The family of this 135-nucleotide RNA sequence from Sinocyclocheilus grahami is "U12 minor spliceosomal RNA".
Clan: U2 clan.
The pairing is the family consensus, mapped onto this sequence.
The match comes from Rfam's covariance-model search (72 bits).
Lineage of the source: Eukaryota > Deuterostomia > Actinopterygii > Cyprininae > Sinocyclocheilus.
The family's RNA type in Rfam is spliceosomal small nuclear RNA.
For this family Rfam cites "Pre-mRNA splicing: the discovery of a new spliceosome doubles the challenge" (Tarn and Steitz, Trends Biochem Sci, 1997).
RNA sequence: GUGUGACGCACGACGCGGGGUGACGCCCGUGUCCUCGCUCAAACUCGCGAGAGGAAUUUUUGAGCGGGCACAGGUCCGUCUGCGAGGUGACUCACCUACUUUAGUGAGAUGCCGAGCGGAGCCAGGAUCUGCCCG
Numbered sequence: 001g002u003g004u005g006a007c008g009c010a011c012g013a014c015g016c017g018g019g020g021u022g023a024c025g026c027c028c029g030u031g032u033c034c035u036c037g038c039u040c041a042a043a044c045u046c047g048c049g050a051g052a053g054g055a056a057u058u059u060u061u062g063a064g065c066g067g068g069c070a071c072a073g074g075u076c077c078g079u080c081u082g083c084g085a086g087g088u089g090a091c092u093c094a095c096c097u098a099c100u101u102u103a104g105u106g107a108g109a110u111g112c113c114g115a116g117c118g119g120a121g122c123c124a125g126g127a128u129c130u131g132c133c134c135g
Stems, first nucleotide, its partner, number of pairs: 012033008034051005065135005072130006082117002086113004091108005